Rfam assigns this 88-nucleotide sequence from Gossypium lobatum to the family "MIR7486 microRNA precursor family". The source organism's lineage runs through Eukaryota, Streptophyta, Streptophytina, Mesangiospermae and Gossypium.
Nucleotides: 088
Stems, first nucleotide, its partner, number of pairs: 001087003005083008014074008023065004030058004035053004040048002
Number, partner (000 for none) and nucleotide at each position: 001087c002086a003085c004000a005083u006082c007081a008080g009079c010078g011077c012076g013000c014074u015073u016072u017071g018070c019069u020068g021067a022000c023065g024064u025063g026062g027000a028000c029000a030058u031057a032056a033055a034000g035053c036052g037051c038050g039000c040048u041047u042000u043000a044000u045000g046000u047041g048040a049000a050038c051037g052036c053035g054000a055033u056032u057031u058030g059000c060000u061000a062026c063025c064024a065023c066000g067021u068020c069019a070018g071017c072016a073015a074014a075000c076012c077011g078010c079009g080008c081007u082006g083005a084000c085003g086002u087001g088000g